The family of this 80-nucleotide RNA sequence from Salmo trutta is "Small nucleolar RNA SNORD83". Gene Ontology terms of the family: RNA processing and nucleolus. By type it is a C/D-box small nucleolar RNA. The source organism's lineage runs through Eukaryota, Opisthokonta, Bilateria, Gnathostomata and Salmo. The literature on the family includes a 2000 paper in Nucleic Acids Res by Jady and Kiss, "Characterisation of the U83 and U84 small nucleolar RNAs: two novel 2'-O-ribose methylation guide RNAs that lack complementarities to ribosomal RNAs". It scores 58 bits against the family's covariance model. Rfam 15.1 lists 1,393 matches to the family in 644 species. The base pairs follow the family's consensus structure, which was predicted with PFOLD.

RNA sequence: GCCACAUGAUGACUGUAAAUAGAUUGCACUAGCACUAUAUGCAAAGAUGACUCCUUAUCUAUCACCCUUGUCUGAUGGCU
Dot-bracket structure: ((((...........................(((.....))).................................)))).